[Rfam]
RNA sequence: CUUUGUAUUCUUCCACAGCUUUCUUGAACUGCAUCUAGGUUGCAUGCUGACGGCGGUUUCGCAACUUGUACUUGUUGUUGCGGUUCAAUAAAGCUGUGGGAAGAUACAGACA
Numbered sequence: 001c002u003u004u005g006u007a008u009u010c011u012u013c014c015a016c017a018g019c020u021u022u023c024u025u026g027a028a029c030u031g032c033a034u035c036u037a038g039g040u041u042g043c044a045u046g047c048u049g050a051c052g053g054c055g056g057u058u059u060c061g062c063a064a065c066u067u068g069u070a071c072u073u074g075u076u077g078u079u080g081c082g083g084u085u086c087a088a089u090a091a092a093g094c095u096g097u098g099g100g101a102a103g104a105u106a107c108a109g110a111c112a
Stems, first nucleotide, its partner, number of pairs: 003109005013099003017095006024088004029083005

The family of this 112-nucleotide sequence from Acer yangbiense is "MIR396 microRNA precursor family". On this family, see Jones-Rhoades and Bartel, Mol Cell 2004: "Computational identification of plant microRNAs and their targets, including a stress-induced miRNA". The family has 26 seed sequences and 744 matches in Rfam 15.1. Pairs were carried over by alignment from the consensus structure, which was predicted with WAR.